Nuclear RNase P: a 306-nucleotide sequence from Sphenodon punctatus. The match comes from Rfam's covariance-model search (74 bits). Rfam's curators write: Ribonuclease P (RNase P) is a ubiquitous endoribonuclease, found in archaea, bacteria and eukarya as well as chloroplasts and mitochondria. Its best characterised activity is the generation of mature 5'-ends of tRNAs by cleaving the 5'-leader elements of precursor-tRNAs. Cellular RNase Ps are ribonucleoproteins. RNA from bacterial RNase Ps retains its catalytic activity in the absence of the protein subunit, i.e. it is a ribozyme.
RNA sequence: GAGGGUGGGAGCUGUGCACCUGGGAGCUAGCUCCCCCGUGGCUCAGGGGACGGUCUGAGACAGGACCAGUGGGUGUCCUUGCAGGGCGCCACACUACACGGAUGGGAGAGGCCCCCAGUCAGGUGGGCCUCAUGGCAGGGCUGCAGCUUCAGAAAUGGUGGGAUCCCUGCCCCUGUGACAGCCCCCAUGAAUACCCUGCUCUGCACGGGGCAUGGGACAGACACCCGGCCAGCAAUGCCAAGUCCAAUGGGGUGAAGGUGUGGCCCUCCCCCACAGCCCAAUUAAGAUUAGUCUUCUCCAGGCCUC
Numbered sequence: 001g002a003g004g005g006u007g008g009g010a011g012c013u014g015u016g017c018a019c020c021u022g023g024g025a026g027c028u029a030g031c032u033c034c035c036c037c038g039u040g041g042c043u044c045a046g047g048g049g050a051c052g053g054u055c056u057g058a059g060a061c062a063g064g065a066c067c068a069g070u071g072g073g074u075g076u077c078c079u080u081g082c083a084g085g086g087c088g089c090c091a092c093a094c095u096a097c098a099c100g101g102a103u104g105g106g107a108g109a110g111g112c113c114c115c116c117a118g119u120c121a122g123g124u125g126g127g128c129c130u131c132a133u134g135g136c137a138g139g140g141c142u143g144c145a146g147c148u149u150c151a152g153a154a155a156u157g158g159u160g161g162g163a164u165c166c167c168u169g170c171c172c173c174u175g176u177g178a179c180a181g182c183c184c185c186c187a188u189g190a191a192u193a194c195c196c197u198g199c200u201c202u203g204c205a206c207g208g209g210g211c212a213u214g215g216g217a218c219a220g221a222c223a224c225c226c227g228g229c230c231a232g233c234a235a236u237g238c239c240a241a242g243u244c245c246a247a248u249g250g251g252g253u254g255a256a257g258g259u260g261u262g263g264c265c266c267u268c269c270c271c272c273a274c275a276g277c278c279c280a281a282u283u284a285a286g287a288u289u290a291g292u293c294u295u296c297u298c299c300a301g302g303c304c305u306c
Base pairs, nucleotide, nucleotide: 001306002305003304004303007299008298009297012257013256015254017250020046021045022035023034024033025032026031055286056285058283059282064230066228067227074088075087076086077085078084089105090104091103094100106226108224110222112220127211128210129209130208131207258274259273260272262270263269